This 252-nucleotide RNA sequence from Paenibacillus solanacearum belongs to the Rfam family "BsrG". The match comes from Rfam's covariance-model search (74 bits). Rfam describes the family as follows. bsrE, bsrG and bsrH pair through intermolecular interactions with antisense sRNAs. Rfam links the family to the GO terms autolysis and toxin activity. For this family Rfam cites "Against the mainstream: the membrane-associated type I toxin BsrG from Bacillus subtilis interferes with cell envelope biosynthesis without increasing membrane permeability" (Jahn et al., Mol Microbiol, 2015).
Nucleotides: 252
Stems, first nucleotide, its partner, number of pairs: 001225005008218001011200006020151003024146001026144001031052001033050001035048005060122001063119004073088003097114003202217004230252010
Number, partner (000 for none) and nucleotide at each position: 001225c002224a003223c004222a005221a006000u007000u008218g009000a010000a011200u012199g013198g014197c015196u016195u017000u018000a019000u020151g021150g022149g023000c024146g025000g026144u027000c028000g029000g030000c031052u032000a033050a034000c035048c036047u037046c038045u039044c040000g041000g042000a043000a044039g045038g046037g047036a048035g049000g050033u051000g052031a053000u054000g055000c056000c057000u058000g059000u060122g061000g062000a063119g064118g065117u066116a067000u068000a069000c070000c071000a072000a073088g074087c075086a076000c077000u078000u079000a080000c081000c082000u083000u084000g085000a086075u087074g088073u089000u090000c091000a092000u093000g094000u095000u096000c097114g098113g099112c100000a101000u102000g103000u104000u105000c106000a107000u108000c109000u110000u111000g112099g113098c114097u115000u116066u117065g118064c119063u120000g121000a122060c123000u124000u125000a126000c127000c128000u129000u130000a131000a132000c133000a134000a135000a136000c137000g138000a139000a140000a141000a142000u143000a144026g145000a146024c147000c148000g149022c150021c151020c152000u153000c154000u155000c156000g157000c158000a159000a160000a161000g162000g163000u164000u165000a166000a167000c168000g169000g170000u171000c172000u173000a174000u175000u176000c177000g178000u179000g180000c181000a182000c183000c184000u185000a186000a187000c188000u189000u190000u191000g192000u193000u194000g195016a196015a197014g198013c199012c200011a201000a202217c203216c204215g205214c206000c207000c208000u209000u210000a211000a212000a213000a214205g215204c216203g217202g218008c219000u220000a221005u222004u223003g224002u225001g226000u227000a228000g229000a230252g231251a232250g233249u234248c235247g236246u237245g238244u239243u240000a241000g242000u243239a244238g245237c246236a247235c248234g249233g250232c251231u252230c